[Rfam]
RNA sequence: CAUCCUGAGGAGCGCUGCGACGCACCAGCCGGUUUCGGUGUGCCAGGCUCAGGAUAGUUUCGUCACCCACAUGGCCGGCAGGGUCAUCUUGCCGUGCGUGGGGCAGCCCGGGCGUUUGCCCAGGCCGCAUUGCCUGCGCCUGGGCGCGGGACGAACGGCGCUCGCCAAUU
Numbered sequence: 001c002a003u004c005c006u007g008a009g010g011a012g013c014g015c016u017g018c019g020a021c022g023c024a025c026c027a028g029c030c031g032g033u034u035u036c037g038g039u040g041u042g043c044c045a046g047g048c049u050c051a052g053g054a055u056a057g058u059u060u061c062g063u064c065a066c067c068c069a070c071a072u073g074g075c076c077g078g079c080a081g082g083g084u085c086a087u088c089u090u091g092c093c094g095u096g097c098g099u100g101g102g103g104c105a106g107c108c109c110g111g112g113c114g115u116u117u118g119c120c121c122a123g124g125c126c127g128c129a130u131u132g133c134c135u136g137c138g139c140c141u142g143g144g145c146g147c148g149g150g151a152c153g154a155a156c157g158g159c160g161c162u163c164g165c166c167a168a169u170u
Base pairs, nucleotide, nucleotide: 002055003054004053005052006051007050008049021042022041023040024039025038026037